This 102-nucleotide sequence from Microbacterium sp. SA39 belongs to the Rfam family "mraW RNA".
The source organism's lineage runs through Bacteria, Actinomycetota, Actinomycetes, Micrococcales and Microbacterium.
RNA sequence: CUUCUGACCACGGCUGUGAUGCCCCGCCGCUCCCGCCCCGACACACUUCCCCGGUGCCGGGUCGAGAAGCGGAGGGGGAUCAGAGCCGAAGGUCACCCCGAG
Numbered sequence: 001c002u003u004c005u006g007a008c009c010a011c012g013g014c015u016g017u018g019a020u021g022c023c024c025c026g027c028c029g030c031u032c033c034c035g036c037c038c039c040g041a042c043a044c045a046c047u048u049c050c051c052c053g054g055u056g057c058c059g060g061g062u063c064g065a066g067a068a069g070c071g072g073a074g075g076g077g078g079a080u081c082a083g084a085g086c087c088g089a090a091g092g093u094c095a096c097c098c099c100g101a102g
Base pairs, nucleotide, nucleotide: 011088012087013086014085015084018081019080022077023076024075025074027072028071029070030069031068032066034064035063037061038060039059040058042056043055044054
Dot-bracket structure: ..........(((((..((..((((.((((((.((.((((.(((.........))).)))).)).).))))).))))..))..)))))..............